[Rfam]
RNA sequence: AGCUGCGUGGUGGGCGCAGAGCGAACUAUUCUUUCGCCUUUUACUAAAGAAUACCGUGUGCCCGUCACUUAAAGCAGCAUACGCCAAUUUUUGGUGGGCUUAUUUCCUUUUGGAAAUU
Number, nucleotide and partner (000 for none) at each position: 001a000002g000003c077004u076005g075006c074007g000008u067009g066010g065011u064012g063013g062014g061015c060016g059017c058018a057019g000020a000021g000022c000023g000024a000025a000026c000027u053028a052029u051030u050031c049032u048033u047034u046035c000036g000037c000038c000039u000040u000041u000042u000043a000044c000045u000046a034047a033048a032049g031050a030051a029052u028053a027054c000055c000056g000057u018058g017059u016060g015061c014062c013063c012064g011065u010066c009067a008068c000069u000070u000071a000072a000073a000074g006075c005076a004077g003078c000079a000080u000081a000082c000083g000084c000085c000086a000087a000088u000089u000090u000091u000092u000093g000094g000095u000096g000097g000098g000099c000100u000101u000102a117103u116104u115105u114106c113107c112108u000109u000110u000111u000112g107113g106114a105115a104116a103117u102118u000

Annotation:
The record is a 118-nucleotide RNA from Cocos nucifera, which matches "U5 spliceosomal RNA" in Rfam. It scores 91 bits against the family's covariance model. Taxonomically the source falls in Cocos (Eukaryota, Viridiplantae, Streptophyta, Tracheophyta). The family's consensus secondary structure is taken from published work. Rfam links the family to the GO terms spliceosomal tri-snRNP complex assembly and U5 snRNP.